[Rfam]
Small nucleolar RNA SNORA3/SNORA45 family: a 134-nucleotide sequence from Hemibagrus wyckioides. From the family's description: The members of this family belong to the H/ACA class of snoRNAs which are thought to guide the sites of modification of uridines to pseudouridines. This family includes mouse snoMBI-28 and human homologues ACA3 (SNORA3) and ACA3-2 (SNORA45). Both ACA3 and ACA3-2 share the same host gene. MBI-28, ACA3 and ACA3-2 are all predicted to guide the pseudouridylation of residues in 28S rRNA. The organism belongs to Hemibagrus, within Eukaryota. On this family, see Huttenhofer et al., EMBO J 2001: "RNomics: an experimental approach that identifies 201 candidates for novel, small, non-messenger RNAs in mouse".
RNA sequence: AACGAGGCUAGAGUCACAUCCUGACACUGACUGUUGUCCUGGUGUGCUAGAGCUCUCGUAGAUUAAUCACUCUCUGCUUAUUCAUUGGCUGCUGCUUCUCCAUCGCCCAGCCAAUCACCAGCUCAGAAACACUC
Numbered sequence: 001a002a003c004g005a006g007g008c009u010a011g012a013g014u015c016a017c018a019u020c021c022u023g024a025c026a027c028u029g030a031c032u033g034u035u036g037u038c039c040u041g042g043u044g045u046g047c048u049a050g051a052g053c054u055c056u057c058g059u060a061g062a063u064u065a066a067u068c069a070c071u072c073u074c075u076g077c078u079u080a081u082u083c084a085u086u087g088g089c090u091g092c093u094g095c096u097u098c099u100c101c102a103u104c105g106c107c108c109a110g111c112c113a114a115u116c117a118c119c120a121g122c123u124c125a126g127a128a129a130c131a132c133u134c
Stems, first nucleotide, its partner, number of pairs: 002059005007053003012048002015046006023038004072126002076122003084115005090109002094106002